[Rfam]
RNA sequence: AGGGCGACCGGGUCCACGGCGCGGGUCGCCAGCAGGUAGUCGCGGAUGGCGAUCCCGUGGCGGCCCUC
Dot-bracket structure: ....((.(..(((..((.......)).)))....((.(.((((.....))))).))..).))......
Numbered sequence: 001a002g003g004g005c006g007a008c009c010g011g012g013u014c015c016a017c018g019g020c021g022c023g024g025g026u027c028g029c030c031a032g033c034a035g036g037u038a039g040u041c042g043c044g045g046a047u048g049g050c051g052a053u054c055c056c057g058u059g060g061c062g063g064c065c066c067u068c
Stems, first nucleotide, its partner, number of pairs: 005062002008059001011030003016026002035056002038053001040052004
Shown here is a 68-nucleotide RNA from Actinoplanes sp. ATCC 53533, a member of the family "ASdes TB sRNA". Lineage of the source: Bacteria > Actinomycetota > Actinomycetes > Micromonosporaceae > Actinoplanes. By type it is a small RNA. For this family Rfam cites "Identification of small RNAs in Mycobacterium tuberculosis" (Arnvig and Young, Mol Microbiol, 2009).